[Rfam]
RNA: pemK RNA
RNA sequence: AUAAUGAUACUUCCGUUCCCGGGUUACCGGGGGCGGCUCGGAGCGUUCCUCGGAGGGGUGAGAGUCCCAUGA
Numbered sequence: 001a002u003a004a005u006g007a008u009a010c011u012u013c014c015g016u017u018c019c020c021g022g023g024u025u026a027c028c029g030g031g032g033g034c035g036g037c038u039c040g041g042a043g044c045g046u047u048c049c050u051c052g053g054a055g056g057g058g059u060g061a062g063a064g065u066c067c068c069a070u071g072a
Base pairs, nucleotide, nucleotide: 012069013036014035015034016033017032018031019030020029021028022027037055038054039053041051042050043049056068057067058066